[Rfam]
RNA sequence: CAUACUCAAAAAUAACGGAGAGAAUGGUGGCACCGGGGUUAGAGACAAUGCGCACAUCGCCGAUGGUGGAAUCGUAAACGCCGUGGAAGCGAAUCCAACCGACGAAGAAGAUUGCCCCCAAUCCGAGCAGCAGCAGGUGAUGACCCAGAAUUAAGCCCAGUUGCUUGGGAUCAUCCCA
Number, nucleotide and partner (000 for none) at each position: 001c000002a000003u000004a000005c000006u000007c000008a000009a000010a000011a000012a000013u000014a000015a000016c000017g000018g000019a000020g000021a000022g000023a000024a000025u000026g000027g000028u000029g000030g000031c000032a000033c000034c000035g000036g000037g000038g000039u000040u000041a000042g000043a000044g000045a000046c000047a000048a000049u000050g000051c000052g000053c000054a000055c000056a000057u000058c000059g000060c000061c000062g000063a000064u000065g000066g000067u000068g000069g000070a000071a000072u000073c000074g000075u000076a000077a000078a000079c000080g000081c000082c000083g000084u000085g000086g000087a000088a000089g000090c000091g000092a000093a000094u000095c000096c000097a000098a000099c000100c000101g000102a000103c000104g000105a000106a000107g000108a000109a000110g000111a000112u000113u000114g000115c000116c000117c000118c000119c000120a000121a000122u000123c000124c000125g000126a000127g000128c000129a000130g000131c000132a000133g000134c000135a000136g175137g174138u173139g172140a171141u170142g000143a000144c169145c168146c167147a166148g165149a000150a000151u000152u000153a000154a000155g000156c000157c000158c000159a000160g000161u000162u000163g000164c000165u148166u147167g146168g145169g144170a141171u140172c139173a138174u137175c136176c000177c000178a000
The family of this 178-nucleotide RNA sequence from Prochlorothrix hollandica is "Antisense RNA which regulates isiA expression". Pairs were carried over by alignment from the consensus structure, which was predicted with PFOLD. It is one of the family's seed sequences.